[Rfam]
RNA sequence: CAUUCCUAGGGCGAUGGAGUUCGCCUUAACCGCCAGUGUGCUGAUGACUCCUACCUUAAA
Numbered sequence: 001c002a003u004u005c006c007u008a009g010g011g012c013g014a015u016g017g018a019g020u021u022c023g024c025c026u027u028a029a030c031c032g033c034c035a036g037u038g039u040g041c042u043g044a045u046g047a048c049u050c051c052u053a054c055c056u057u058a059a060a
Stems, first nucleotide, its partner, number of pairs: 010025004016051006032041002
RNA: Fluoride riboswitch aptamer (crcB RNA motif)